[Rfam]
RNA sequence: CAGUAGCACUUAUAGGAACUGUCUGGAGUGACCACGAAAGUGGUAAUUUUGCCAUUAUUUAAAAGACUACAAGGGCA
Numbered sequence: 001c002a003g004u005a006g007c008a009c010u011u012a013u014a015g016g017a018a019c020u021g022u023c024u025g026g027a028g029u030g031a032c033c034a035c036g037a038a039a040g041u042g043g044u045a046a047u048u049u050u051g052c053c054a055u056u057a058u059u060u061a062a063a064a065g066a067c068u069a070c071a072a073g074g075g076c077a
Stems, first nucleotide, its partner, number of pairs: 031044005048073004
The record is a 77-nucleotide RNA, which matches "RAGATH-12 RNA" in Rfam. The literature on the family includes a 2015 paper in Nat Chem Biol by Weinberg et al., "New classes of self-cleaving ribozymes revealed by comparative genomics analysis". It is annotated as a small RNA.